[Rfam]
Notes:
The family of this 72-nucleotide RNA from Callorhinchus milii is "mir-34 microRNA precursor family". The family is grouped with related families in Rfam's "mir-34 clan". Rfam describes the family as follows. Human mir-34a was discovered computationally and later experimentally verified. The mature sequence is excised from the 5' arm of the hairpin. Rfam 15.1 lists 2,256 matches to the family in 820 species. The source organism's lineage runs through Eukaryota, Vertebrata, Chondrichthyes, Callorhinchidae and Callorhinchus. It scores 57 bits against the family's covariance model. On this family, see Lim et al., Science 2003: "Vertebrate microRNA genes".
RNA sequence: ACUUUGCAGGCAGUGUAGUUAGCUGAUUGUGGAGCUAAGGGAACAAUCGCUAACUCACACUACCAUCAAAAG
Numbered sequence: 001a002c003u004u005u006g007c008a009g010g011c012a013g014u015g016u017a018g019u020u021a022g023c024u025g026a027u028u029g030u031g032g033a034g035c036u037a038a039g040g041g042a043a044c045a046a047u048c049g050c051u052a053a054c055u056c057a058c059a060c061u062a063c064c065a066u067c068a069a070a071a072g
Stems, first nucleotide, its partner, number of pairs: 003070004009064002012061005017055006024049007